[Rfam]
RNA sequence: ACCGUCCUUAUUUGGGGGUGUGAGCACACUCAAGGAUCGUUUAGAGAGAGUAUGCCUGCUAACACCAACAAUUAACAAAAGAUCCGCACCGCUUGCAUGAACUUGUGGGUUUGGGUGCAAUUUUUGGAACC
Numbered sequence: 001a002c003c004g005u006c007c008u009u010a011u012u013u014g015g016g017g018g019u020g021u022g023a024g025c026a027c028a029c030u031c032a033a034g035g036a037u038c039g040u041u042u043a044g045a046g047a048g049a050g051u052a053u054g055c056c057u058g059c060u061a062a063c064a065c066c067a068a069c070a071a072u073u074a075a076c077a078a079a080a081g082a083u084c085c086g087c088a089c090c091g092c093u094u095g096c097a098u099g100a101a102c103u104u105g106u107g108g109g110u111u112u113g114g115g116u117g118c119a120a121u122u123u124u125u126g127g128a129a130c131c
Stems, first nucleotide, its partner, number of pairs: 006018004020059003025054002028051004037045002086118005092109006
RNA: U4atac minor spliceosomal RNA